Shown here is a 61-nucleotide RNA sequence from Gammaretrovirus aviretend, a member of the family "Gag/pol translational readthrough site".
It is annotated as a cis-regulatory element.
Rfam links the family to the GO term viral translational readthrough.
On this family, see Wills et al., EMBO J 1994: "Pseudoknot-dependent read-through of retroviral gag termination codons: importance of sequences in the spacer and loop 2".
[Rfam]
RNA sequence: UAGGGCCGUCAGGGUUCUCCCGCCCUCCGUGAACCCAGGCUAAAAGUUAAGGUAGGGGGGC
Numbered sequence: 001u002a003g004g005g006c007c008g009u010c011a012g013g014g015u016u017c018u019c020c021c022g023c024c025c026u027c028c029g030u031g032a033a034c035c036c037a038g039g040c041u042a043a044a045a046g047u048u049a050a051g052g053u054a055g056g057g058g059g060g061c
Stems, first nucleotide, its partner, number of pairs: 012036006019029001022061007